[Rfam]
RNA: MIR1520 microRNA precursor family
RNA sequence: UUUUUAUUGGAUAAUGACGGUCACAUGUCUUAUUCUAAUUGUGUUUUAUUCUAAUUGACCAAUGACAAGUUAAUGCAUUUCAUCUUUUAUGGAUUCGAUAUCCAAUCAAAACAUGACACGUAACAGU
Numbered sequence: 001u002u003u004u005u006a007u008u009g010g011a012u013a014a015u016g017a018c019g020g021u022c023a024c025a026u027g028u029c030u031u032a033u034u035c036u037a038a039u040u041g042u043g044u045u046u047u048a049u050u051c052u053a054a055u056u057g058a059c060c061a062a063u064g065a066c067a068a069g070u071u072a073a074u075g076c077a078u079u080u081c082a083u084c085u086u087u088u089a090u091g092g093a094u095u096c097g098a099u100a101u102c103c104a105a106u107c108a109a110a111a112c113a114u115g116a117c118a119c120g121u122a123a124c125a126g127u
Base pairs, nucleotide, nucleotide: 020124021123023121026118029115031113033111034110036108038106039105040104